RNA sequence: UAUUAGUCAUAUGACUGACGGAAGUGGAGUUACCACAUGAAGUAUGACUAGGCAUAUUAUCUUAUAUGCCACAAAAAGCCGACCGUCUGGGCAAAAAAA
Numbered sequence: 001u002a003u004u005a006g007u008c009a010u011a012u013g014a015c016u017g018a019c020g021g022a023a024g025u026g027g028a029g030u031u032a033c034c035a036c037a038u039g040a041a042g043u044a045u046g047a048c049u050a051g052g053c054a055u056a057u058u059a060u061c062u063u064a065u066a067u068g069c070c071a072c073a074a075a076a077a078g079c080c081g082a083c084c085g086u087c088u089g090g091g092c093a094a095a096a097a098a099a
Stems, first nucleotide, its partner, number of pairs: 004050009015039001017087005024036004078092003

A member of the RNA family "ZMP/ZTP riboswitch aptamer (pfl RNA motif)" from Clostridium beijerinckii, 99 nucleotides long. The source organism's lineage runs through Bacteria, Clostridia, Clostridiaceae, Clostridium and Clostridium beijerinckii.